[Rfam]
The record is a 109-nucleotide RNA from Streptomyces fumanus, which matches "Glycine riboswitch aptamer" in Rfam. Gene Ontology term of the family: glycine biosynthetic process. Taxonomically the source falls in Streptomyces (Bacteria, Bacillati, Actinomycetes, Kitasatosporales).

Nucleotides: 109
Stems, first nucleotide, its partner, number of pairs: 002104001004102006016033004035088003039083001042082001044080001048075002
Number, partner (000 for none) and nucleotide at each position: 001000g002104c003000a004102c005101a006100u007099c008098u009097g010000a011000a012000a013000a014000g015000c016033g017032g018031g019030c020000c021000g022000c023000c024000c025000c026000g027000g028000u029000g030019g031018c032017c033016c034000c035088a036087c037086c038000c039083a040000a041000g042082g043000u044080g045000c046000a047000a048075g049074u050000c051000c052000u053000g054000a055000c056000c057000g058000c059000c060000g061000c062000g063000c064000g065000g066000u067000g068000g069000u070000c071000a072000c073000g074049g075048c076000g077000a078000a079000c080044c081000u082042c083039u084000c085000a086037g087036g088035u089000c090000c091000c092000g093000a094000u095000g096000a097009c098008a099007g100006a101005u102004g103000g104002g105000g106000a107000g108000g109000a